[Rfam]
RNA sequence: GGUAUUGUUUGCCCCACGAUGAGCCCCGGAAUCUUAUUGUGUAUCGUCAAACAACAG
Numbered sequence: 001g002g003u004a005u006u007g008u009u010u011g012c013c014c015c016a017c018g019a020u021g022a023g024c025c026c027c028g029g030a031a032u033c034u035u036a037u038u039g040u041g042u043a044u045c046g047u048c049a050a051a052c053a054a055c056a057g
Base pairs, nucleotide, nucleotide: 006053007052008051009050010049011048015041016040017039018038019037020036021035022034023033
RNA: Ribosomal protein L13 leader
Organism: Vagococcus penaei